[Rfam]
RNA sequence: CGCCUUGUGCCUGAAAGGGCGACGGUGUCGAGCCGGAGCGAGAAGUCAGCAGAAGCCGUAGUAGGGAGCGUCUUGGCGCGAACGAAGGGC
Numbered sequence: 001c002g003c004c005u006u007g008u009g010c011c012u013g014a015a016a017g018g019g020c021g022a023c024g025g026u027g028u029c030g031a032g033c034c035g036g037a038g039c040g041a042g043a044a045g046u047c048a049g050c051a052g053a054a055g056c057c058g059u060a061g062u063a064g065g066g067a068g069c070g071u072c073u074u075g076g077c078g079c080g081a082a083c084g085a086a087g088g089g090c
Base pairs, nucleotide, nucleotide: 001030002029005024008021009020010019011018012017046053047052055090056089057088064083068079069078
The family of this 90-nucleotide RNA from Neorhizobium sp. S3-V5DH is "Group II catalytic intron D1-D4-1". The pairing is the family consensus, mapped onto this sequence. Rfam describes the family as follows. Group II introns are found in rRNA, tRNA and mRNA of organelles in fungi, plants and protists, and also in mRNA in bacteria. The literature on the family includes a 2003 paper in Crit Rev Biochem Mol Biol by Lehmann and Schmidt, "Group II introns: structure and catalytic versatility of large natural ribozymes". The organism belongs to Neorhizobium, within Bacteria.